[Rfam]
RNA sequence: CGGGAUUCAGAUACACAAGUAAUAGAGAAGCAUUUUAUUACUCGUCAUGAAGAUCCCAACAUCAAACUUUAGCUUUAUGAUGACCACUUAGGCUUAGGAAUUACUAAGUGGACAGAUACGAAGCUUACAAAG
Dot-bracket structure: .((((((.......((.(...((((.........))))...).))......)))))).............((((((.......(((..(((............)))..)))........)))))).......
RNA: Small Cajal body specific RNA 8
Organism: Clytia hemisphaerica